Shown here is a 129-nucleotide RNA sequence from Echinimonas agarilytica, a member of the family "Histidine operon leader".
Rfam links the family to the GO term histidine biosynthetic process.
By type it is a cis-regulatory leader.
Lineage of the source: Bacteria > Gammaproteobacteria > Alteromonadales > Echinimonadaceae > Echinimonas.

RNA sequence: ACAUCACCAUCAUCAUCCAGAAAGCUAACCUUUCAGGAGCGAGAUGCGUGGAAGGUAACAAAGCCUUCCACCGGUGUCAGCCAUAGUGCAAUAACCCUCGGAAGGCUUGGCCCCCGAGGGUUUUUUAUU
Numbered sequence: 001a002c003a004u005c006a007c008c009a010u011c012a013u014c015a016u017c018c019a020g021a022a023a024g025c026u027a028a029c030c031u032u033u034c035a036g037g038a039g040c041g042a043g044a045u046g047c048g049u050g051g052a053a054g055g056u057a058a059c060a061a062a063g064c065c066u067u068c069c070a071c072c073g074g075u076g077u078c079a080g081c082c083a084u085a086g087u088g089c090a091a092u093a094a095c096c097c098u099c100g101g102a103a104g105g106c107u108u109g110g111c112c113c114c115c116g117a118g119g120g121u122u123u124u125u126u127a128u129u
Stems, first nucleotide, its partner, number of pairs: 008046003014043001017037002020034002048071008090125002093122009104111001